SAM (S-adenosyl methionine) riboswitch aptamer: a 120-nucleotide sequence from Virgisporangium aliadipatigenens. The match comes from Rfam's covariance-model search (94 bits). A reference for the family is Weinberg et al. (2008), "The aptamer core of SAM-IV riboswitches mimics the ligand-binding site of SAM-I riboswitches", RNA. Gene Ontology terms of the family: regulation of gene expression and S-adenosylmethionine metabolic process. Pairs were carried over by alignment from the consensus structure, which is taken from published work.

[Rfam]
Nucleotides: 120
Stems, first nucleotide, its partner, number of pairs: 001081004009038001011037006021030002039068003044064003048059001084109007092102003
Number, partner (000 for none) and nucleotide at each position: 001081g002080g003079u004078c005000a006000u007000g008000a009038g010000u011037g012036c013035c014034a015033g016032c017000g018000c019000g020000u021030a022029g023000c024000c025000c026000c027000g028000g029022c030021u031000u032016g033015c034014u035013g036012g037011c038009c039068g040067g041066c042000a043000a044064c045063c046062c047000u048059u049000g050000c051000g052000a053000u054000c055000c056000g057000c058000g059048a060000u061000g062046g063045g064044g065000u066041g067040c068039c069000c070000c071000g072000g073000g074000u075000g076000a077000g078004g079003a080002c081001c082000u083000g084109g085108c086107c087106c088105g089104u090103g091000c092102g093101c094100c095000g096000g097000c098000u099000u100094g101093g102092c103090c104089g105088c106087g107086g108085g109084c110000a111000a112000g113000c114000g115000c116000g117000g118000a119000c120000c